Overview:
eL15-Euryarchaeota ribosomal protein leader: a 50-nucleotide sequence from Natronomonas pharaonis. The base pairs follow the family's consensus structure, which is taken from published work. Rfam classes the family as a cis-regulatory leader.

RNA sequence: CCUGUCGACACAGGCUGGAAUGUGACCGGCUCCGCCGGUUGAACCACGAA
Number, nucleotide and partner (000 for none) at each position: 001c014002c013003u012004g011005u010006c000007g000008a000009c000010a005011c004012a003013g002014g001015c000016u046017g045018g044019a000020a000021u000022g000023u000024g040025a039026c038027c037028g036029g000030c000031u000032c000033c000034g000035c000036c028037g027038g026039u025040u024041g000042a000043a000044c018045c017046a016047c000048g000049a000050a000